[Rfam]
RNA sequence: CUCUGGAAAGCGUAUGUGCACCGAAGGAGCAAUUCCUAUUUUAGGGAGAAUCUCUCAGGUUAAUAAACAGAG
Dot-bracket structure: (((((.....((....)).(((((..(((...(((((.....)))))....))))).))).......)))))
RNA: Glycine riboswitch aptamer
Organism: Alkaliphilus peptidifermentans